A member of the RNA family "mir-458 microRNA precursor family" from Perca flavescens, 80 nucleotides long. Taxonomically the source falls in Perca (Eukaryota, Opisthokonta, Metazoa, Euteleosteomorpha). The family has 12 seed sequences and 1,011 matches in Rfam 15.1. The match comes from Rfam's covariance-model search (72 bits).
[Rfam]
RNA sequence: UUGCAGGCGGCAGCGCCAUUUUCAGAGCGUGUGAAGUGUGAAAGUUGUCAUAGCUCUUUAAAUGGUACUGCUGUAUGCAC
Numbered sequence: 001u002u003g004c005a006g007g008c009g010g011c012a013g014c015g016c017c018a019u020u021u022u023c024a025g026a027g028c029g030u031g032u033g034a035a036g037u038g039u040g041a042a043a044g045u046u047g048u049c050a051u052a053g054c055u056c057u058u059u060a061a062a063u064g065g066u067a068c069u070g071c072u073g074u075a076u077g078c079a080c
Stems, first nucleotide, its partner, number of pairs: 002079003007074003011070003015066007024057005030052003